[Rfam]
RNA: SAM (S-adenosyl methionine) riboswitch aptamer
RNA sequence: GGUCAUGAGUCCCGGCGUCAAACCCUGGUUUGCCGGGCGGCAACCCCGUUCGACGUGUGGGGGUGCUCCAGGUGACGACCCGGUCCGACAACCGCCGGACAAGCACAUCGC
Number, nucleotide and partner (000 for none) at each position: 001g080002g079003u078004c077005a000006u000007g000008a000009g038010u000011c037012c036013c035014g034015g033016c032017g000018u000019c000020a000021a030022a029023c000024c000025c000026u000027g000028g000029u022030u021031u000032g016033c015034c014035g013036g012037g011038c009039g067040g066041c065042a000043a000044c063045c062046c061047c000048g058049u057050u000051c000052g000053a000054c000055g000056u000057g049058u048059g000060g000061g046062g045063g044064u000065g041066c040067u039068c000069c000070a000071g000072g000073u000074g000075a000076c000077g004078a003079c002080c001081c000082g000083g100084u099085c098086c097087g096088a000089c000090a000091a000092c000093c000094g000095c000096c087097g086098g085099a084100c083101a000102a000103g000104c000105a000106c000107a000108u000109c000110g000111c000